Notes:
Bacterial large signal recognition particle RNA: a 264-nucleotide sequence from Capillibacterium thermochitinicola.

RNA sequence: CCGUGCUAGACGGGGAGGUAGCGGUGCCCUGUAACCUGCAACCCGCUAUAGCAGGGUUGAAUUCCGGUGGGAGGCGGCUCUUUGCGGUGCCGGCUAUGACAAGUGGUGUUGAAGAUCAGGUCCUGCGCAACGGAGACCGGUGAACCCCGCCAGGUCCGGGAGGAAGCAACGGUAAGCCGAUUCCUUCGUGUGCCGCGGGGCAACCUGGUUGGAGCUAACGAUCAUAGUACGACCGGGGGGAGUCCGUCGAAAGCCGGUGCACGG
Numbered sequence: 001c002c003g004u005g006c007u008a009g010a011c012g013g014g015g016a017g018g019u020a021g022c023g024g025u026g027c028c029c030u031g032u033a034a035c036c037u038g039c040a041a042c043c044c045g046c047u048a049u050a051g052c053a054g055g056g057u058u059g060a061a062u063u064c065c066g067g068u069g070g071g072a073g074g075c076g077g078c079u080c081u082u083u084g085c086g087g088u089g090c091c092g093g094c095u096a097u098g099a100c101a102a103g104u105g106g107u108g109u110u111g112a113a114g115a116u117c118a119g120g121u122c123c124u125g126c127g128c129a130a131c132g133g134a135g136a137c138c139g140g141u142g143a144a145c146c147c148c149g150c151c152a153g154g155u156c157c158g159g160g161a162g163g164a165a166g167c168a169a170c171g172g173u174a175a176g177c178c179g180a181u182u183c184c185u186u187c188g189u190g191u192g193c194c195g196c197g198g199g200g201c202a203a204c205c206u207g208g209u210u211g212g213a214g215c216u217a218a219c220g221a222u223c224a225u226a227g228u229a230c231g232a233c234c235g236g237g238g239g240g241a242g243u244c245c246g247u248c249g250a251a252a253g254c255c256g257g258u259g260c261a262c263g264g
Stems, first nucleotide, its partner, number of pairs: 001264006009058003012030004017025001019023001035055005064257005073248005079241005085235004093228001095226005103219002105216003114210008122199006128190002131188005136181001138179004147172003155164003

Gene Ontology terms of the family: signal recognition particle, plasma membrane targeting and SRP-dependent cotranslational protein targeting to membrane, signal sequence recognition.